[Rfam]
RNA sequence: CAGGUUGACCGGAGAAUCGCGGUGUGCAAACGCCGAGGAAAGUCCGCACUCCAUAGGGCACGGUGCUGGCUAACAGCCAGGCGGGGGAACCCGACGGAAUAGUGCAACAGAGAGUAAAUUGCGUCACAUUUGUGGCGUGAGGGUGAAAGGGUGCGGUAAGAGCGCACCGGCGCUGGCAGUGAUGUCGGCGGCCAGGCAAACCCCACCGGGAGCAAAGUCAAGCAGGUGCAUAGGGGCGGCCCGUCCCGCUUAAGCACCGGGUAGACUGCACGAGGUGUACGGUAACGUGCAUCCCAGAUAGAUGAUUCUCUAGAACAGAAUGCGGCUUAUGGGUCGGCCUGGAUU
Dot-bracket structure: ((((((((((((((((((.((((((....))))))....[[[.[[[[[((((...[[[[.((((((((((.....)))))(((((....)))).)((....((((.............(((((((((....)))))))..)).......((((((.......)))))).(((((((((....)))))))).)...))..)))))))))))))...((((.....(((((...(((((.]]]])))))......))))).....))))......((((((((....))))))))..........)))))))..........]]]]]]]].).))))))))))....
Annotation:
The record is a 345-nucleotide RNA from Phototrophicus methaneseepsis, which matches "Bacterial RNase P class A" in Rfam. Taxonomically the source falls in Phototrophicus (Bacteria, Candidatus Thermofontia, Phototrophicales, Phototrophicaceae). A search with the family's covariance model found it, with a score of 284 bits.